[Rfam]
Rfam assigns this 77-nucleotide sequence from Schistosoma japonicum to the family "mir-3492 microRNA precursor family". Its family is annotated with RISC complex and miRNA-mediated post-transcriptional gene silencing in the Gene Ontology. Taxonomically the source falls in Schistosoma (Eukaryota, Metazoa, Bilateria, Neodermata).
RNA sequence: AGCUUUCUGAAUCCGUGAUGAGAUUUCAUCCAACACCGACCCAACAAGGGUGAUGGAAUUCCUAUAUAAGUGAAGUG
Numbered sequence: 001a002g003c004u005u006u007c008u009g010a011a012u013c014c015g016u017g018a019u020g021a022g023a024u025u026u027c028a029u030c031c032a033a034c035a036c037c038g039a040c041c042c043a044a045c046a047a048g049g050g051u052g053a054u055g056g057a058a059u060u061c062c063u064a065u066a067u068a069a070g071u072g073a074a075g076u077g
Stems, first nucleotide, its partner, number of pairs: 002076005008070001011067002017062001020061003024058007